[Rfam]
RNA sequence: GAUGACCCUCAGUGGUCUGGGGUGCAGGCUUCAAACCUGUAGCUGUCUAGCGACAGAGUGGUUCAAUUCCUUUGAAUUCUC
Numbered sequence: 001g002a003u004g005a006c007c008c009u010c011a012g013u014g015g016u017c018u019g020g021g022g023u024g025c026a027g028g029c030u031u032c033a034a035a036c037c038u039g040u041a042g043c044u045g046u047c048u049a050g051c052g053a054c055a056g057a058g059u060g061g062u063u064c065a066a067u068u069c070c071u072u073u074g075a076a077u078u079c080u081c
Stems, first nucleotide, its partner, number of pairs: 003074002007022006023041006043056005058072001060070002
The record is an 81-nucleotide RNA sequence from Tinamus guttatus, which matches "Selenocysteine transfer RNA" in Rfam. NCBI's taxonomy places the organism under Eukaryota, Deuterostomia, Sarcopterygii, Tinamiformes, Tinamus. On this family, see Mizutani and Goto, FEBS Lett 2000: "Eukaryotic selenocysteine tRNA has the 9/4 secondary structure".